Record summary: Ribosomal protein L20 leader: a 161-nucleotide RNA sequence from Paenibacillus nasutitermitis. About the family: This family is a putative r-protein leader autoregulatory structure found in B. subtilis and other low-GC Gram-positive bacteria. It is located in the 5' untranslated regions of mRNAs encoding initiation factor 3 followed by ribosomal proteins L35 and L20 (infC-rpmI-rplT). A Rho-independent transcription terminator structure that is probably involved in regulation is included at the 3' end. The base pairs follow the family's consensus structure, which was predicted with CMfinder. It is annotated as a cis-regulatory leader.
RNA sequence: ACGCAAAAGCAGAAGCACCCGCUUCUCACCUGUUCGGCAGUCGGCCGGCUGGUUCGCGAUCGAUGAUUGAAAUAGGCUUCGCCGUUUAAGGCGAUGAUUGAAUGCCUACAAUCUUGGUUAAUGGAAUGCGGGUCCGUGCGGAUCCGCAUUUUUUAUUUUGC
Numbered sequence: 001a002c003g004c005a006a007a008a009g010c011a012g013a014a015g016c017a018c019c020c021g022c023u024u025c026u027c028a029c030c031u032g033u034u035c036g037g038c039a040g041u042c043g044g045c046c047g048g049c050u051g052g053u054u055c056g057c058g059a060u061c062g063a064u065g066a067u068u069g070a071a072a073u074a075g076g077c078u079u080c081g082c083c084g085u086u087u088a089a090g091g092c093g094a095u096g097a098u099u100g101a102a103u104g105c106c107u108a109c110a111a112u113c114u115u116g117g118u119u120a121a122u123g124g125a126a127u128g129c130g131g132g133u134c135c136g137u138g139c140g141g142a143u144c145c146g147c148a149u150u151u152u153u154u155a156u157u158u159u160g161c
Stems, first nucleotide, its partner, number of pairs: 011026006028053003034048005127148009